[Rfam]
RNA sequence: CUUCACCGAGCCGAGCCACAGCGGGUCACCCGCACGGUUCUGCCCGUACGUGGCGAGCAGCGCCUGGGCCUC
Number, nucleotide and partner (000 for none) at each position: 001c000002u000003u000004c000005a000006c000007c000008g000009a000010g000011c000012c000013g000014a026015g000016c024017c023018a000019c000020a000021g000022c000023g017024g016025g000026u014027c000028a000029c000030c000031c068032g000033c066034a000035c062036g061037g000038u000039u000040c057041u056042g000043c000044c053045c052046g051047u000048a000049c000050g000051u046052g045053g044054c000055g000056a041057g040058c000059a000060g000061c036062g035063c000064c000065u000066g033067g000068g031069c000070c000071u000072c000
ASpks TB sRNA: a 72-nucleotide RNA sequence from Streptomyces alboflavus.
The base pairs follow the family's consensus structure, which is taken from published work.
A search with the family's covariance model found it, with a score of 76 bits.
The organism belongs to Streptomyces, within Bacteria.
It is annotated as an antisense RNA.